[Rfam]
RNA sequence: CUCUUAUCAUGAGUUGGCGGAGGGAAUUGGCCCUACGAAGCCCAGCAACCGGCCGAAAUACCAUUGUGAUAUGGGGCGCUAUAUGCGCCAUUAACGUUAAGGCACGGUGCUACAUCCACCAGAAAGCAGUUGCUUUCUGAAAGAUAAGAG
Numbered sequence: 001c002u003c004u005u006a007u008c009a010u011g012a013g014u015u016g017g018c019g020g021a022g023g024g025a026a027u028u029g030g031c032c033c034u035a036c037g038a039a040g041c042c043c044a045g046c047a048a049c050c051g052g053c054c055g056a057a058a059u060a061c062c063a064u065u066g067u068g069a070u071a072u073g074g075g076g077c078g079c080u081a082u083a084u085g086c087g088c089c090a091u092u093a094a095c096g097u098u099a100a101g102g103c104a105c106g107g108u109g110c111u112a113c114a115u116c117c118a119c120c121a122g123a124a125a126g127c128a129g130u131u132g133c134u135u136u137c138u139g140a141a142a143g144a145u146a147a148g149a150g
Stems, first nucleotide, its partner, number of pairs: 001150008013043001016042003022033003028118003044111004049107002051103001053101001115142001120139006
Shown here is a 150-nucleotide sequence from Bacillus solimangrovi, a member of the family "SAM riboswitch aptamer (S box leader)". Gene Ontology term of the family: regulation of gene expression. Taxonomically the source falls in Bacillus (Bacteria, Bacillati, Caryophanales, Bacillaceae). A search with the family's covariance model found it, with a score of 73 bits.